[Rfam]
Source information
Shown here is a 71-nucleotide RNA from Eptatretus burgeri, a member of the family "mir-10 microRNA precursor family". A search with the family's covariance model found it, with a score of 65 bits. Rfam links the family to the GO terms miRNA-mediated post-transcriptional gene silencing and RISC complex. The source organism's lineage runs through Eukaryota, Eumetazoa, Bilateria, Eptatretinae and Eptatretus.
RNA sequence: CGCCAUAAACCCGUAGAUCCGAACUUGUGGGGCUAUUAAAGCACAAGCUCGGAUCUGCAGGCAUCUGUCGG
Numbered sequence: 001c002g003c004c005a006u007a008a009a010c011c012c013g014u015a016g017a018u019c020c021g022a023a024c025u026u027g028u029g030g031g032g033c034u035a036u037u038a039a040a041g042c043a044c045a046a047g048c049u050c051g052g053a054u055c056u057g058c059a060g061g062c063a064u065c066u067g068u069c070g071g
Stems, first nucleotide, its partner, number of pairs: 002069001004067002007064001010061002015056008024047006